[Rfam]
RNA sequence: UUCUUAUCAAGAGCGGUGGAGGGACUAGGCCCGAUGAAGCCCGGCAACCGGCGGCGUGUCCGCAAGGUGCUACAUCCUACAGAACGAACGGUUCUGAAAGAUAAGAA
Numbered sequence: 001u002u003c004u005u006a007u008c009a010a011g012a013g014c015g016g017u018g019g020a021g022g023g024a025c026u027a028g029g030c031c032c033g034a035u036g037a038a039g040c041c042c043g044g045c046a047a048c049c050g051g052c053g054g055c056g057u058g059u060c061c062g063c064a065a066g067g068u069g070c071u072a073c074a075u076c077c078u079a080c081a082g083a084a085c086g087a088a089c090g091g092u093u094c095u096g097a098a099a100g101a102u103a104a105g106a107a
Stems, first nucleotide, its partner, number of pairs: 001107008013042001015041003021032003026079004043071004048067002051063003075099001080096006
This 107-nucleotide RNA from Aneurinibacillus danicus belongs to the Rfam family "SAM riboswitch aptamer (S box leader)". The base pairs follow the family's consensus structure, which is taken from published work. Lineage of the source: Bacteria > Bacillota > Bacilli > Paenibacillaceae > Aneurinibacillus. Rfam describes the family as follows. The SAM riboswitch is found upstream of a number of genes which code for proteins involved in methionine or cysteine biosynthesis in Gram-positive bacteria.